The record is an 83-nucleotide RNA, which matches "c-di-GMP-II-GAG riboswitch aptamer" in Rfam.
Rfam links the family to the GO terms regulation of gene expression and cyclic-di-GMP binding.
On this family, see Weinberg et al., Proc Natl Acad Sci U S A 2017: "Bioinformatic analysis of riboswitch structures uncovers variant classes with altered ligand specificity".
RNA sequence: UCGUACGUGGGAGGCUGUGACGCGCGGCCCAUGCAAUGGGCGCCCGGACCGCGCCGAGCCACUGGCGAGACCGGCCUGCGCGA
Numbered sequence: 001u002c003g004u005a006c007g008u009g010g011g012a013g014g015c016u017g018u019g020a021c022g023c024g025c026g027g028c029c030c031a032u033g034c035a036a037u038g039g040g041c042g043c044c045c046g047g048a049c050c051g052c053g054c055c056g057a058g059c060c061a062c063u064g065g066c067g068a069g070a071c072c073g074g075c076c077u078g079c080g081c082g083a
Base pairs, nucleotide, nucleotide: 004082006080007079008078009077010076011075013060014059015058022054023053024052025051026050027049029047038072039071041067042066043065044064